[Rfam]
About this RNA: A member of the RNA family "Leucine operon leader" from Lonsdalea quercina, 150 nucleotides long. Rfam describes the family as follows. At least 6 amino acid operons are known to be regulated by attenuation. In each a leader sequence of 150-200 bp is found upstream of the first gene in the operon. A reference for the family is Kolter and Yanofsky (1982), "Attenuation in amino acid biosynthetic operons", Annu Rev Genet. Rfam classes the family as a cis-regulatory leader. Rfam links the family to the GO term leucine biosynthetic process. The match comes from Rfam's covariance-model search (79 bits).

RNA sequence: UUGGAAGACAAUCAGCAUGUCCCACUUCGCAAAACUACUAGGCCUACUACUUAUCGCAUCCAACAUGCGCGGUAUGCCGGUGGGCGAAAUUUACAGCUGAUUUUCACGCCACACCUUCAAAAAAACCCGCGCCAUUGCGCGGGUUUUUUU
Numbered sequence: 001u002u003g004g005a006a007g008a009c010a011a012u013c014a015g016c017a018u019g020u021c022c023c024a025c026u027u028c029g030c031a032a033a034a035c036u037a038c039u040a041g042g043c044c045u046a047c048u049a050c051u052u053a054u055c056g057c058a059u060c061c062a063a064c065a066u067g068c069g070c071g072g073u074a075u076g077c078c079g080g081u082g083g084g085c086g087a088a089a090u091u092u093a094c095a096g097c098u099g100a101u102u103u104u105c106a107c108g109c110c111a112c113a114c115c116u117u118c119a120a121a122a123a124a125a126c127c128c129g130c131g132c133c134a135u136u137g138c139g140c141g142g143g144u145u146u147u148u149u150u
Stems, first nucleotide, its partner, number of pairs: 004110001007105002010102007027087004033081001035079001048074004055069004122147011